[Rfam]
RNA sequence: AAGAGGAGGAGGAAAGGAGACAGGGAUGAGGCAGAGCAUGGGAUGGGGCUAUCAACAGAUUCCUUCCUUUCUUGAACUGCUGCUUGGUUUGUCUUUGUUUCCCUGGUUUCCAGUAUACCCUCUUGUGAGUUCUUGGAAGAAGAGAGUUGUCACUUGUGAGAGAUGGUGUUGUUGCUCCCUCCCCUGCACUGCCUCUUCCCUGGCUCCCCUGCAUCGCCUCACC
Numbered sequence: 001a002a003g004a005g006g007a008g009g010a011g012g013a014a015a016g017g018a019g020a021c022a023g024g025g026a027u028g029a030g031g032c033a034g035a036g037c038a039u040g041g042g043a044u045g046g047g048g049c050u051a052u053c054a055a056c057a058g059a060u061u062c063c064u065u066c067c068u069u070u071c072u073u074g075a076a077c078u079g080c081u082g083c084u085u086g087g088u089u090u091g092u093c094u095u096u097g098u099u100u101c102c103c104u105g106g107u108u109u110c111c112a113g114u115a116u117a118c119c120c121u122c123u124u125g126u127g128a129g130u131u132c133u134u135g136g137a138a139g140a141a142g143a144g145a146g147u148u149g150u151c152a153c154u155u156g157u158g159a160g161a162g163a164u165g166g167u168g169u170u171g172u173u174g175c176u177c178c179c180u181c182c183c184c185u186g187c188a189c190u191g192c193c194u195c196u197u198c199c200c201u202g203g204c205u206c207c208c209c210u211g212c213a214u215c216g217c218c219u220c221a222c223c
Stems, first nucleotide, its partner, number of pairs: 017206003021202006029194006036187003040183001042182001046177004
A member of the RNA family "MIR408 microRNA precursor family" from Zizania palustris, 223 nucleotides long. Rfam links the family to the GO terms RISC complex and miRNA-mediated post-transcriptional gene silencing. A reference for the family is Sunkar and Zhu (2004), "Novel and stress-regulated microRNAs and other small RNAs from Arabidopsis", Plant Cell. It scores 80 bits against the family's covariance model. The source organism's lineage runs through Eukaryota, Viridiplantae, Embryophyta, Liliopsida and Zizania.